Shown here is a 95-nucleotide sequence from Morus notabilis, a member of the family "mir-160 microRNA precursor family". The family has 7 seed sequences and 1,502 matches in Rfam 15.1. Its family is annotated with RISC complex and miRNA-mediated post-transcriptional gene silencing in the Gene Ontology.
RNA sequence: UUAUGCCUGGCUCCCUGUAUGCCACAAGCGCAUCAACCAAUCAUCUUCCCCUAUUCAUUGGUUUGUGCUGGUAGCGUGCGAGGAGCCAAGCAUAA
Number, nucleotide and partner (000 for none) at each position: 001u095002u094003a093004u092005g091006c090007c000008u088009g087010g086011c085012u084013c083014c082015c000016u080017g079018u078019a077020u076021g075022c074023c000024a072025c000026a000027a069028g068029c067030g066031c065032a064033u000034c000035a000036a000037c000038c000039a000040a000041u000042c000043a000044u000045c000046u000047u000048c000049c000050c000051c000052u000053a000054u000055u000056c000057a000058u000059u000060g000061g000062u000063u000064u032065g031066u030067g029068c028069u027070g000071g000072u024073a000074g022075c021076g020077u019078g018079c017080g016081a000082g014083g013084a012085g011086c010087c009088a008089a000090g006091c005092a004093u003094a002095a001